This 78-nucleotide sequence from Salmo salar belongs to the Rfam family "mir-130 microRNA precursor family". The family has 9 seed sequences and 2,580 matches in Rfam 15.1. NCBI's taxonomy places the organism under Eukaryota, Chordata, Teleostomi, Protacanthopterygii, Salmo. A reference for the family is Lagos-Quintana et al. (2002), "Identification of tissue-specific microRNAs from mouse", Curr Biol.

[Rfam]
Nucleotides: 078
Stems, first nucleotide, its partner, number of pairs: 003076006011068007020059004025054004
Number, partner (000 for none) and nucleotide at each position: 001000u002000g003076g004075c005074a006073c007072c008071c009000u010000a011068u012067c013066c014065c015064c016063u017062a018000u019000a020059u021058a022057g023056u024000a025054c026053a027052c028051u029000a030000c031000u032000g033000u034000g035000g036000g037000c038000a039000c040000u041000g042000g043000u044000c045000a046000a047000a048000a049000g050000u051028a052027g053026u054025g055000c056023a057022c058021u059020a060000u061000a062017u063016a064015g065014g066013g067012g068011a069000a070000a071008g072007g073006g074005u075004g076003c077000c078000a